RNA sequence: GACCUAAACCAUCCGUAAGGUUGGCAUGGUUGCCUAAUCCAUACAGAACAAACAGCUCGUCGUCAGAGCACUGUUCUGUAUGGUCAUAGUCCGAAAGGAUUAUGGGUGGCCUUCGGGUCAUC
Numbered sequence: 001g002a003c004c005u006a007a008a009c010c011a012u013c014c015g016u017a018a019g020g021u022u023g024g025c026a027u028g029g030u031u032g033c034c035u036a037a038u039c040c041a042u043a044c045a046g047a048a049c050a051a052a053c054a055g056c057u058c059g060u061c062g063u064c065a066g067a068g069c070a071c072u073g074u075u076c077u078g079u080a081u082g083g084u085c086a087u088a089g090u091c092c093g094a095a096a097g098g099a100u101u102a103u104g105g106g107u108g109g110c111c112u113u114c115g116g117g118u119c120a121u122c
Base pairs, nucleotide, nucleotide: 001031002030003029004028009024010023011022013020014019039083040082041081042080043079044078045077046076047075048074049073055069056068057067058066085104086103087102088101089100090099091098092097105122106121107120108119109118110117
The record is a 122-nucleotide sequence, which matches "LOOT RNA" in Rfam.
The sequence is in the family's curated seed alignment.